The record is a 583-nucleotide part of an RNA from Haladaptatus paucihalophilus, which matches "Archaeal large subunit ribosomal RNA" in Rfam.
RNA sequence: CCCCCAAGGGGAAGCGAAGACCCUAUAGAGCUUUACUGCAGGCUGUCGCUGGGACGUGGUCGCUACUGUGCAGAAUAGGUAGGAGCCGCUACACAGGUAUCCGCGCUAGCGGAUCACCGAGGCAUCAGUGAAAUACUACCCGGUAGUGACUGCGACCCUCACUCCUGGCGGAGGACACCGGUAGCCAGGCAGUUUGACUGGGGCGGUACGCGCUCGAAAAGAUAUCGAGCGCGCCCCAAGAUUUCCUCACUCGAGUCGGAGACUCGAGGAAGAGCGCAAGAGCAAAAGGAAGUCUGACAGUGUCCUACACAACGAGGGACGCUGACGCGAAAGCGUGGUCUAGCGAACCAAUGAGGCUGCUUGUUGCGGCCCAUUGAUGACAGAAAAGCUACCUUAGGGAUAACAGAGUCGUCACCGGCAAGAGCACAUAUCGACCCGGUGGCUUGCUACCUCGAUGUCGGUUCCCUCCAUCCUGCCCGUGCAGAAGCGGGCAAGGGUGAGGUUGUUCGCCUAUUAAAGGAGGUCGUGAGCUGGGUUUAGACCGUCGUGAGACAGGUCGGCUGCUAUCUAUUGGGGGUGUUAC
Dot-bracket structure: (((((((..(((.((......((((.(((((((.((((...(((((((..(((.((((((((((((((.........(((((..(((............(((((....))))).......)))............))))))))))))))))))).)))...((((....)))).....)))))))....))))..((((.....))).)((((((...........))))))..((....((((((((.((((((.......))))))...))((......))....))))))....(((((((((.........))))))))).(.(....).).))..........(((((.(((((.......)))))))))).........)))))..))))))........(((.((((((((...((.......))...)))))))..))))..........(((((((((((..((..(((((......)))))....))..((((.....))))......)))))..)..)))).).....(((((((....))).))))....))..))).)))))))......
Numbered sequence: 001c002c003c004c005c006a007a008g009g010g011g012a013a014g015c016g017a018a019g020a021c022c023c024u025a026u027a028g029a030g031c032u033u034u035a036c037u038g039c040a041g042g043c044u045g046u047c048g049c050u051g052g053g054a055c056g057u058g059g060u061c062g063c064u065a066c067u068g069u070g071c072a073g074a075a076u077a078g079g080u081a082g083g084a085g086c087c088g089c090u091a092c093a094c095a096g097g098u099a100u101c102c103g104c105g106c107u108a109g110c111g112g113a114u115c116a117c118c119g120a121g122g123c124a125u126c127a128g129u130g131a132a133a134u135a136c137u138a139c140c141c142g143g144u145a146g147u148g149a150c151u152g153c154g155a156c157c158c159u160c161a162c163u164c165c166u167g168g169c170g171g172a173g174g175a176c177a178c179c180g181g182u183a184g185c186c187a188g189g190c191a192g193u194u195u196g197a198c199u200g201g202g203g204c205g206g207u208a209c210g211c212g213c214u215c216g217a218a219a220a221g222a223u224a225u226c227g228a229g230c231g232c233g234c235c236c237c238a239a240g241a242u243u244u245c246c247u248c249a250c251u252c253g254a255g256u257c258g259g260a261g262a263c264u265c266g267a268g269g270a271a272g273a274g275c276g277c278a279a280g281a282g283c284a285a286a287a288g289g290a291a292g293u294c295u296g297a298c299a300g301u302g303u304c305c306u307a308c309a310c311a312a313c314g315a316g317g318g319a320c321g322c323u324g325a326c327g328c329g330a331a332a333g334c335g336u337g338g339u340c341u342a343g344c345g346a347a348c349c350a351a352u353g354a355g356g357c358u359g360c361u362u363g364u365u366g367c368g369g370c371c372c373a374u375u376g377a378u379g380a381c382a383g384a385a386a387a388g389c390u391a392c393c394u395u396a397g398g399g400a401u402a403a404c405a406g407a408g409u410c411g412u413c414a415c416c417g418g419c420a421a422g423a424g425c426a427c428a429u430a431u432c433g434a435c436c437c438g439g440u441g442g443c444u445u446g447c448u449a450c451c452u453c454g455a456u457g458u459c460g461g462u463u464c465c466c467u468c469c470a471u472c473c474u475g476c477c478c479g480u481g482c483a484g485a486a487g488c489g490g491g492c493a494a495g496g497g498u499g500a501g502g503u504u505g506u507u508c509g510c511c512u513a514u515u516a517a518a519g520g521a522g523g524u525c526g527u528g529a530g531c532u533g534g535g536u537u538u539a540g541a542c543c544g545u546c547g548u549g550a551g552a553c554a555g556g557u558c559g560g561c562u563g564c565u566a567u568c569u570a571u572u573g574g575g576g577g578u579g580u581u582a583c
Stems, first nucleotide, its partner, number of pairs: 001577007010569003014564002022398004027394002029390005035193004042185007051158003055154014078140005085123003100113005162173004196209001197207003210232006235338002241293006247273002250268006274283002298324009326335001328333001349376005355371005407448003411445001412442007422432002459534001460532004464526001465523005472497002476491005500512004540558004544553003

On this family, see Yusupov et al., Science 2001: "Crystal structure of the ribosome at 5.5 A resolution". The family is grouped with related families in Rfam's "LSU clan". The organism belongs to Haladaptatus paucihalophilus, within Archaea. Pairs were carried over by alignment from the consensus structure, which is taken from published work. Gene Ontology terms of the family: structural constituent of ribosome and ribosome.